[Rfam]
A member of the RNA family "Small nucleolar RNA SNORA25" from Sciurus carolinensis, 126 nucleotides long. From the family's description: ACA25 is a member of the H/ACA class of snoRNA that guide the sites of modification of uridines to pseudouridines. The family has 30 seed sequences and 1,129 matches in Rfam 15.1. Pairs were carried over by alignment from the consensus structure, which was predicted with RNAfold. Rfam links the family to the GO terms RNA processing and nucleolus. By type it is an H/ACA-box small nucleolar RNA. The match comes from Rfam's covariance-model search (102 bits).
RNA sequence: AGGUCAUUUCAAAGAAGACUUGUGGGGAUAUGAAAUCAGGAGCUAACACUAUGACCAAAGAUUAAAGUUCUCCAUAGGGUACCAGAGUGACUCAAUAGUGCUGUGUUUUUCUGAGGAGGUAUAAGA
Numbered sequence: 001a002g003g004u005c006a007u008u009u010c011a012a013a014g015a016a017g018a019c020u021u022g023u024g025g026g027g028a029u030a031u032g033a034a035a036u037c038a039g040g041a042g043c044u045a046a047c048a049c050u051a052u053g054a055c056c057a058a059a060g061a062u063u064a065a066a067g068u069u070c071u072c073c074a075u076a077g078g079g080u081a082c083c084a085g086a087g088u089g090a091c092u093c094a095a096u097a098g099u100g101c102u103g104u105g106u107u108u109u110u111c112u113g114a115g116g117a118g119g120u121a122u123a124a125g126a
Base pairs, nucleotide, nucleotide: 002056003055004054005053006052007051014044019042020041021040023039026037027036069119070118071117072116073115076112077111078110079109084104086102087101090099091098092097